[Rfam]
Nucleotides: 214
Base pairs, nucleotide, nucleotide: 001038002037003035005033006032007031013027014026015025016024017023018022043069044068045067046066048064049063050062051061052060053059078213079212080211081210082209097201098200099199100198101196102195103194104193105192106191107190108189110165111164112163113162120154121153123151124150125149129143130142131141133140134139167186168185169184170183171182172181173180174179
Number, partner (000 for none) and nucleotide at each position: 001038a002037c003035g004000a005033c006032c007031u008000u009000a010000c011000u012000u013027g014026g015025a016024c017023a018022g019000g020000a021000u022018c023017u024016g025015u026014u027013c028000u029000a030000u031007a032006g033005g034000a035003u036000c037002g038001u039000a040000c041000c042000u043069c044068u045067g046066u047000a048064u049063c050062c051061u052060u053059g054000a055000u056000u057000u058000c059053u060052a061051a062050g063049g064048a065000g066046a067045c068044a069043g070000g071000a072000a073000u074000c075000c076000c077000a078213a079212c080211c081210u082209g083000g084000u085000g086000g087000a088000u089000g090000a091000a092000u093000c094000a095000a096000g097201a098200c099199c100198g101196u102195a103194c104193g105192a106191u107190c108189a109000g110165a111164g112163c113162g114000u115000g116000a117000u118000u119000a120154a121153c122000a123151g124150c125149u126000u127000c128000u129143g130142g131141u132000u133140c134139c135000c136000u137000u138000g139134g140133g141131a142130c143129c144000c145000a146000a147000a148000u149125a150124g151123c152000c153121g154120u155000a156000g157000a158000g159000g160000a161000u162113c163112g164111u165110u166000c167186u168185c169184a170183g171182c172181u173180g174179g175000g176000u177000g178000a179174c180173u181172g182171g183170c184169u185168g186167g187000g188000g189108u190107g191106g192105u193104u194103g195102u196101a197000u198100c199099g200098g201097u202000u203000g204000u205000c206000u207000g208000a209082c210081a211080g212079g213078u214000u